[Rfam]
RNA sequence: GGCCUAAAGCGUCCGUAGCCGGCCGGGCAAGUCCGUCGGGAAAUCUACCAGCUCAACUGGUAGGCGUCCGGCGGAAACUGCUCGGCUUGGGACAGGGAGACUCGAAGGGUACGUCCGGGGUAGGAGUGAAAUCCCGUAAUCCUGGACGGACCACCGAUGGCGAAAGCACUUCGAGAGAACUGAUCCGACGGUCAGGGACGAAAGCUGGGGUCUCGAACCGGAUUAGAUACCCGGGUAGUCCCAGCUGUAAACGAUGUUCGCUAGGUGCGACGCAGACUACGAGUCUGUGUUGUGCCGUAGGGAAGCCGAGAAGCGAACCGCCUGGGAAGUACGUCCGCAAGGAUGAAACUUAAAGGAAU
Numbered sequence: 001g002g003c004c005u006a007a008a009g010c011g012u013c014c015g016u017a018g019c020c021g022g023c024c025g026g027g028c029a030a031g032u033c034c035g036u037c038g039g040g041a042a043a044u045c046u047a048c049c050a051g052c053u054c055a056a057c058u059g060g061u062a063g064g065c066g067u068c069c070g071g072c073g074g075a076a077a078c079u080g081c082u083c084g085g086c087u088u089g090g091g092a093c094a095g096g097g098a099g100a101c102u103c104g105a106a107g108g109g110u111a112c113g114u115c116c117g118g119g120g121u122a123g124g125a126g127u128g129a130a131a132u133c134c135c136g137u138a139a140u141c142c143u144g145g146a147c148g149g150a151c152c153a154c155c156g157a158u159g160g161c162g163a164a165a166g167c168a169c170u171u172c173g174a175g176a177g178a179a180c181u182g183a184u185c186c187g188a189c190g191g192u193c194a195g196g197g198a199c200g201a202a203a204g205c206u207g208g209g210g211u212c213u214c215g216a217a218c219c220g221g222a223u224u225a226g227a228u229a230c231c232c233g234g235g236u237a238g239u240c241c242c243a244g245c246u247g248u249a250a251a252c253g254a255u256g257u258u259c260g261c262u263a264g265g266u267g268c269g270a271c272g273c274a275g276a277c278u279a280c281g282a283g284u285c286u287g288u289g290u291u292g293u294g295c296c297g298u299a300g301g302g303a304a305g306c307c308g309a310g311a312a313g314c315g316a317a318c319c320g321c322c323u324g325g326g327a328a329g330u331a332c333g334u335c336c337g338c339a340a341g342g343a344u345g346a347a348a349c350u351u352a353a354a355g356g357a358a359u
Stems, first nucleotide, its partner, number of pairs: 001322003009319001011199004018192003022086007030079002032075009045063007090186003093182003101175007108152002112148008123134003160167002204245006214238001218234004256318006264296014300307002324351003333344004
RNA: Archaeal small subunit ribosomal RNA, nucleotides 505 to 863